[Rfam]
Nucleotides: 102
Stems, first nucleotide, its partner, number of pairs: 018088008029049001031047005058078007
Number, partner (000 for none) and nucleotide at each position: 001000u002000u003000u004000u005000u006000a007000a008000u009000g010000g011000a012000a013000u014000a015000g016000a017000g018088u019087g020086u021085u022084c023083a024082u025081a026000u027000a028000a029049u030000a031047g032046c033045a034044g035043a036000g037000a038000u039000a040000g041000g042000g043035u044034c045033u046032g047031u048000a049029a050000g051000u052000u053000u054000c055000u056000a057000c058078c059077g060076g061075g062074c063073u064072g065000c066000c067000g068000u069000a070000a071000a072064u073063g074062g075061c076060c077059u078058g079000a080000c081025u082024a083023u084022g085021a086020g087019c088018g089000a090000a091000a092000g093000u094000g095000u096000a097000c098000c099000u100000a101000g102000g